[Rfam]
RNA: Small nucleolar RNA SNORD66
Organism: Aotus nancymaae
RNA sequence: GCCCUGUGAUGGUUGAUUUUAUGUGUCACGUGACUGGGCCCCUGAGUGCCCAGAUAAUUGGUAAAGCAUCAUUCUGGGU
Numbered sequence: 001g002c003c004c005u006g007u008g009a010u011g012g013u014u015g016a017u018u019u020u021a022u023g024u025g026u027c028a029c030g031u032g033a034c035u036g037g038g039c040c041c042c043u044g045a046g047u048g049c050c051c052a053g054a055u056a057a058u059u060g061g062u063a064a065a066g067c068a069u070c071a072u073u074c075u076g077g078g079u
Stems, first nucleotide, its partner, number of pairs: 001079004